[Rfam]
RNA sequence: GCUGCCGGGCGAGUUGGCGUCCUCCAGGUCGCUCUGGCAGCCCUCGUCGUUGAGCGAGCUCUGCUUGGCCACCUUGGGCGACAGCAGCUUGACCAGCUCGGCCAGC
Numbered sequence: 001g002c003u004g005c006c007g008g009g010c011g012a013g014u015u016g017g018c019g020u021c022c023u024c025c026a027g028g029u030c031g032c033u034c035u036g037g038c039a040g041c042c043c044u045c046g047u048c049g050u051u052g053a054g055c056g057a058g059c060u061c062u063g064c065u066u067g068g069c070c071a072c073c074u075u076g077g078g079c080g081a082c083a084g085c086a087g088c089u090u091g092a093c094c095a096g097c098u099c100g101g102c103c104a105g106c
Stems, first nucleotide, its partner, number of pairs: 001106004009094001011090006020081002022078003026074004031069003036065005043058005
A member of the RNA family "mir-2968 microRNA precursor family" from Podarcis lilfordi, 106 nucleotides long. The source organism's lineage runs through Eukaryota, Bilateria, Craniata, Sauropsida and Podarcis. For this family Rfam cites "The genome of a songbird" (Warren et al., Nature, 2010). The family has 12 seed sequences and 469 matches in Rfam 15.1. Pairs were carried over by alignment from the consensus structure, which is taken from published work.